[Rfam]
RNA: Rhodo-rpoB RNA
RNA sequence: GGUUCGGGAGCUGCCUGACGGGACAGGUGGCAGGUAUGGAACCGGUCUCCCCUCUGCCCUUGCGGUGCGUCUUCCGUGGCCCGACGGAAGCAUGCG
Numbered sequence: 001g002g003u004u005c006g007g008g009a010g011c012u013g014c015c016u017g018a019c020g021g022g023a024c025a026g027g028u029g030g031c032a033g034g035u036a037u038g039g040a041a042c043c044g045g046u047c048u049c050c051c052c053u054c055u056g057c058c059c060u061u062g063c064g065g066u067g068c069g070u071c072u073u074c075c076g077u078g079g080c081c082c083g084a085c086g087g088a089a090g091c092a093u094g095c096g
Stems, first nucleotide, its partner, number of pairs: 001043005010031008066096005072089005